[Rfam]
RNA sequence: UGGCAGCAUCCAAAAGAUAAGAUGCCUGCCCGAUACAGUCUUCCUAGAGUAAAACUGACAUUUCCUGCUUGUGGUAUUGUUAGCAAGUUCUACAAGUCUCAAAUGAUAAGACAACUUU
Numbered sequence: 001u002g003g004c005a006g007c008a009u010c011c012a013a014a015a016g017a018u019a020a021g022a023u024g025c026c027u028g029c030c031c032g033a034u035a036c037a038g039u040c041u042u043c044c045u046a047g048a049g050u051a052a053a054a055c056u057g058a059c060a061u062u063u064c065c066u067g068c069u070u071g072u073g074g075u076a077u078u079g080u081u082a083g084c085a086a087g088u089u090c091u092a093c094a095a096g097u098c099u100c101a102a103a104u105g106a107u108a109a110g111a112c113a114a115c116u117u118u
Base pairs, nucleotide, nucleotide: 002030003029005027006025007024008023009022010021056111067097068096069095070094071093072092073091074090076088077087078086